[Rfam]
RNA sequence: ACGCUGGUUUAGCUCAGUGGUUACUUCAAUCGAAAAUCCUGUUUCACGGUCCGCGGGCCAGAAGUACGAACCACGGGCGCUGUCUAGCGUUUUU
Numbered sequence: 001a002c003g004c005u006g007g008u009u010u011a012g013c014u015c016a017g018u019g020g021u022u023a024c025u026u027c028a029a030u031c032g033a034a035a036a037u038c039c040u041g042u043u044u045c046a047c048g049g050u051c052c053g054c055g056g057g058c059c060a061g062a063a064g065u066a067c068g069a070a071c072c073a074c075g076g077g078c079g080c081u082g083u084c085u086a087g088c089g090u091u092u093u094u
Stems, first nucleotide, its partner, number of pairs: 002089006012078004017074004025070003

This 94-nucleotide sequence from Oncorhynchus mykiss belongs to the Rfam family "Vault RNA". The family's RNA type in Rfam is non-coding RNA gene. The source organism's lineage runs through Eukaryota, Bilateria, Euteleosteomorpha, Salmoniformes and Oncorhynchus.